[Rfam]
RNA sequence: CGUGAGAGUGAUGAGUUGCACUGAUCACUUGGGAUGUUUGAUGCAGUGGCAUCAUCGCCCCAAUCCGAUCCAUGCUGCGGACACACCAUGUGCACAGGGGCCAUCUGACUCCAC
Dot-bracket structure: .....(((................((..((((..((...(((((....)))))..))..))))...))........................................)))...
Numbered sequence: 001c002g003u004g005a006g007a008g009u010g011a012u013g014a015g016u017u018g019c020a021c022u023g024a025u026c027a028c029u030u031g032g033g034a035u036g037u038u039u040g041a042u043g044c045a046g047u048g049g050c051a052u053c054a055u056c057g058c059c060c061c062a063a064u065c066c067g068a069u070c071c072a073u074g075c076u077g078c079g080g081a082c083a084c085a086c087c088a089u090g091u092g093c094a095c096a097g098g099g100g101c102c103a104u105c106u107g108a109c110u111c112c113a114c
Stems, first nucleotide, its partner, number of pairs: 006111003025068002029063004035057002040053005
The family of this 114-nucleotide sequence from Betta splendens is "Small nucleolar RNA SNORD67". Rfam classes the family as a C/D-box small nucleolar RNA. The base pairs follow the family's consensus structure. Rfam describes the family as follows. snoRNA HBII-166 belongs to the C/D family of snoRNAs.